[Rfam]
RNA sequence: CAGCUCUGGGUUUUCUUCAGCUCACGCACAAUAUCUUUCGCCUUUUACUAACAGAUAUCCGUGGAGAGACCAAAUUGAUGAGUCUCAUCAACAUUUUUCGAUAGUCCACUUCGGUGGGCA
Numbered sequence: 001c002a003g004c005u006c007u008g009g010g011u012u013u014u015c016u017u018c019a020g021c022u023c024a025c026g027c028a029c030a031a032u033a034u035c036u037u038u039c040g041c042c043u044u045u046u047a048c049u050a051a052c053a054g055a056u057a058u059c060c061g062u063g064g065a066g067a068g069a070c071c072a073a074a075u076u077g078a079u080g081a082g083u084c085u086c087a088u089c090a091a092c093a094u095u096u097u098u099c100g101a102u103a104g105u106c107c108a109c110u111u112c113g114g115u116g117g118g119c120a
Base pairs, nucleotide, nucleotide: 003083004082005081006080010071012069013068014067015066016065017064018063019062031058032057033056034055035054036053037051038050104119105118106117107116108115

Source information:
U5 spliceosomal RNA: a 120-nucleotide RNA from Clytia hemisphaerica. Rfam links the family to the GO terms spliceosomal tri-snRNP complex assembly and U5 snRNP. The match comes from Rfam's covariance-model search (60 bits). It is annotated as a spliceosomal small nuclear RNA. Taxonomically the source falls in Clytia (Eukaryota, Cnidaria, Hydrozoa, Hydroidolina).